[Rfam]
RNA: Group II catalytic intron D1-D4-1
RNA sequence: UGCCUUUACGAAAGUCAUGGAGUAAAGCUUGCUGUGAGAAGUCAGCAGAUGCCAUAGUAGUGGAGUUCUCGAUAACGCUCCAUGAAGGGC
Numbered sequence: 001u002g003c004c005u006u007u008a009c010g011a012a013a014g015u016c017a018u019g020g021a022g023u024a025a026a027g028c029u030u031g032c033u034g035u036g037a038g039a040a041g042u043c044a045g046c047a048g049a050u051g052c053c054a055u056a057g058u059a060g061u062g063g064a065g066u067u068c069u070c071g072a073u074a075a076c077g078c079u080c081c082a083u084g085a086a087g088g089g090c
Base pairs, nucleotide, nucleotide: 001024002023003020004019006017008015009014041050042049043048051090052089053088060083061082062081063080064079065078